[Rfam]
RNA: Small Cajal body-specific RNA 2
RNA sequence: CUUUAGCGGAGGGAGCGGCCUGGGGUGAGGGCAGAAAGUAGUGUGCGGCUGUGUCGCGUGGAAGGCGUGUGCGAGCCGAGUGUAAGUGGACGUGUGAGUGUGUGAGCGCGCGUGGGUCGUGCAAGACGAGUGCGUGCGCCCCCCCUUGCGCUCCUUCUCCCGCCUACACAUUGAUCUUAUUUGAUCGGUUUGGGACCCCAGCCCCGCCGGGCCGACCCGAAAUGAAAAGCUCCCUCCUGCGAAGCCCCCUCCUCGGAGGCGCUGUGCAGCGAGGCCCCUAAGGCGGAGGCAACGCCGCGGUCCCGGAGGUCCGGGAGCUGGUCCUACCGGGCCCGGCGCUCAGAAGUGAUGAAUUGAUCAGAUAGACGAGGCCGGGCUUGUCCUGGGCCGCUGAUUAUCGAGGCGAUUCUGAUCUGA
Numbered sequence: 001c002u003u004u005a006g007c008g009g010a011g012g013g014a015g016c017g018g019c020c021u022g023g024g025g026u027g028a029g030g031g032c033a034g035a036a037a038g039u040a041g042u043g044u045g046c047g048g049c050u051g052u053g054u055c056g057c058g059u060g061g062a063a064g065g066c067g068u069g070u071g072c073g074a075g076c077c078g079a080g081u082g083u084a085a086g087u088g089g090a091c092g093u094g095u096g097a098g099u100g101u102g103u104g105a106g107c108g109c110g111c112g113u114g115g116g117u118c119g120u121g122c123a124a125g126a127c128g129a130g131u132g133c134g135u136g137c138g139c140c141c142c143c144c145c146u147u148g149c150g151c152u153c154c155u156u157c158u159c160c161c162g163c164c165u166a167c168a169c170a171u172u173g174a175u176c177u178u179a180u181u182u183g184a185u186c187g188g189u190u191u192g193g194g195a196c197c198c199c200a201g202c203c204c205c206g207c208c209g210g211g212c213c214g215a216c217c218c219g220a221a222a223u224g225a226a227a228a229g230c231u232c233c234c235u236c237c238u239g240c241g242a243a244g245c246c247c248c249c250u251c252c253u254c255g256g257a258g259g260c261g262c263u264g265u266g267c268a269g270c271g272a273g274g275c276c277c278c279u280a281a282g283g284c285g286g287a288g289g290c291a292a293c294g295c296c297g298c299g300g301u302c303c304c305g306g307a308g309g310u311c312c313g314g315g316a317g318c319u320g321g322u323c324c325u326a327c328c329g330g331g332c333c334c335g336g337c338g339c340u341c342a343g344a345a346g347u348g349a350u351g352a353a354u355u356g357a358u359c360a361g362a363u364a365g366a367c368g369a370g371g372c373c374g375g376g377c378u379u380g381u382c383c384u385g386g387g388c389c390g391c392u393g394a395u396u397a398u399c400g401a402g403g404c405g406a407u408u409c410u411g412a413u414c415u416g417a
Base pairs, nucleotide, nucleotide: 051151052150053149054148055071056070057069058068059067060066088099102139103138104137107134108133109132110131111130113128114127180228181227182226185220186219187218188217190215191214192213194212197211198210199209201207202206251309252308253307254306256304258303259302261301262300263299266298267297269295270294271293274290275289276288277286278285317337318336319335320334321333322331323330324329341416342415343414344413351409352408353407354406355405356404370389371388372387373386375384376383